[Rfam]
RNA sequence: UUACAAAAUAAUGUUGACGGUCACGUGUCAUGUUGUGACAUCCAACCAAUCAGAACAUAACACGUGACAAUCAUCAUCC
Numbered sequence: 001u002u003a004c005a006a007a008a009u010a011a012u013g014u015u016g017a018c019g020g021u022c023a024c025g026u027g028u029c030a031u032g033u034u035g036u037g038a039c040a041u042c043c044a045a046c047c048a049a050u051c052a053g054a055a056c057a058u059a060a061c062a063c064g065u066g067a068c069a070a071u072c073a074u075c076a077u078c079c
Base pairs, nucleotide, nucleotide: 020068021067022066023065025063026062030058031057033055034054036052038050